[Rfam]
RNA: c-di-GMP-I riboswitch aptamer
Nucleotides: 087
Stems, first nucleotide, its partner, number of pairs: 012037002017032006040081004045077003048072003055066004
Number, partner (000 for none) and nucleotide at each position: 001000a002000a003000u004000u005000g006000a007000a008000a009000a010000a011000g012037g013036c014000a015000a016000a017032c018031u019030u020029a021028u022027c023000g024000a025000a026000a027022g028021g029020u030019a031018a032017g033000g034000a035000c036013g037012c038000a039000a040081a041080g042079c043078u044000a045077c046076g047075a048072g049071u050070c051000u052000a053000a054000a055066a056065u057064c058063c059000u060000a061000a062000u063058g064057g065056a066055u067000a068000a069000u070050g071049a072048u073000a074000g075047u076046c077045g078043g079042g080041u081040u082000g083000c084000c085000a086000u087000g